[Rfam]
RNA sequence: UACCUGCGUAGAGGUGCAUAACGUAUCAGUAGACCAGUUCAGGGUGAUGCCGUUUAUCCUGGUCAAAAGGACGUUAUGCCGAAGUCAUGUCAUUUAUCCGAUGACUCGGCUGGGAUCGGUACCGAAAGGGCCGAUACUGUCAUGAAUAGUUAUUCAUGAUGCGCUAUUGCUGGG
Numbered sequence: 001u002a003c004c005u006g007c008g009u010a011g012a013g014g015u016g017c018a019u020a021a022c023g024u025a026u027c028a029g030u031a032g033a034c035c036a037g038u039u040c041a042g043g044g045u046g047a048u049g050c051c052g053u054u055u056a057u058c059c060u061g062g063u064c065a066a067a068a069g070g071a072c073g074u075u076a077u078g079c080c081g082a083a084g085u086c087a088u089g090u091c092a093u094u095u096a097u098c099c100g101a102u103g104a105c106u107c108g109g110c111u112g113g114g115a116u117c118g119g120u121a122c123c124g125a126a127a128g129g130g131c132c133g134a135u136a137c138u139g140u141c142a143u144g145a146a147u148a149g150u151u152a153u154u155c156a157u158g159a160u161g162c163g164c165u166a167u168u169g170c171u172g173g174g
Stems, first nucleotide, its partner, number of pairs: 008167004016079009032064006083111004089105006112138002115135006122128001140159007
Lysine riboswitch aptamer: a 174-nucleotide RNA from Oceanisphaera arctica. The base pairs follow the family's consensus structure, which is taken from published work. Rfam links the family to the GO term lysine biosynthetic process. Lineage of the source: Bacteria > Pseudomonadati > Pseudomonadota > Aeromonadaceae > Oceanisphaera. Rfam 15.1 lists 3,224 matches to the family in 1,923 species. The match comes from Rfam's covariance-model search (108 bits).